[Rfam]
RNA sequence: GGUUUGUAGGCAGUGUAGUUAGCUGAUUGUGAUCUCCCCAACAAUCACUAGCUUCACUGUCAACAAAAC
Numbered sequence: 001g002g003u004u005u006g007u008a009g010g011c012a013g014u015g016u017a018g019u020u021a022g023c024u025g026a027u028u029g030u031g032a033u034c035u036c037c038c039c040a041a042c043a044a045u046c047a048c049u050a051g052c053u054u055c056a057c058u059g060u061c062a063a064c065a066a067a068a069c
Stems, first nucleotide, its partner, number of pairs: 003067004009061002012058004017053006024047007

A member of the RNA family "mir-34 microRNA precursor family" from Laticauda laticaudata, 69 nucleotides long. NCBI's taxonomy places the organism under Eukaryota, Craniata, Amniota, Toxicofera, Laticauda. The family's consensus secondary structure was predicted with RNAalifold. Its Rfam clan is "mir-34 clan". A reference for the family is Lim et al. (2003), "Vertebrate microRNA genes", Science. Rfam links the family to the GO terms RISC complex and miRNA-mediated post-transcriptional gene silencing.